[Rfam]
RNA sequence: CCUGUGGAGUGCUAUAUCAAACCGUAGUAGCGAGCAAGGGGUGGAGCGGGGCACGAAGAAGCAGGAA
Numbered sequence: 001c002c003u004g005u006g007g008a009g010u011g012c013u014a015u016a017u018c019a020a021a022c023c024g025u026a027g028u029a030g031c032g033a034g035c036a037a038g039g040g041g042u043g044g045a046g047c048g049g050g051g052c053a054c055g056a057a058g059a060a061g062c063a064g065g066a067a
Base pairs, nucleotide, nucleotide: 001065002064003063004062005061009054010053011052012051013050022049023048024047030042031041
Shown here is a 67-nucleotide sequence from Paenactinomyces guangxiensis, a member of the family "RAGATH-18 RNA". The match comes from Rfam's covariance-model search (58 bits).